A member of the RNA family "Burkholderia RNA 7 (anti-hemB)", 97 nucleotides long. A search with the family's covariance model found it, with a score of 59 bits. From the family's description: This RNA motif was identified by computational search in b-proteobacteria Burkholderia. A reference for the family is Ramos et al. (2013), "Experimental identification of small non-coding regulatory RNAs in the opportunistic human pathogen Burkholderia cenocepacia J2315", Genomics.
RNA sequence: UCCCCGCUUCCCUCCCUGAGCGGGUAACCCGGUUCAUGAGACCUGUACCGGGUUAGUCUGCCCCGGUGGCCUUGCGAAGGUCAUCGGGGUUUUUUAU
Number, nucleotide and partner (000 for none) at each position: 001u000002c000003c024004c023005c022006g021007c020008u019009u000010c000011c000012c000013u000014c000015c000016c000017u000018g000019a008020g007021c006022g005023g004024g003025u000026a054027a053028c052029c051030c050031g049032g048033u000034u000035c000036a000037u000038g000039a000040g000041a000042c000043c000044u000045g000046u000047a000048c032049c031050g030051g029052g028053u027054u026055a000056g000057u000058c000059u000060g000061c089062c088063c087064c086065g085066g084067u083068g082069g081070c080071c079072u078073u077074g000075c000076g000077a073078a072079g071080g070081u069082c068083a067084u066085c065086g064087g063088g062089g061090u000091u000092u000093u000094u000095u000096a000097u000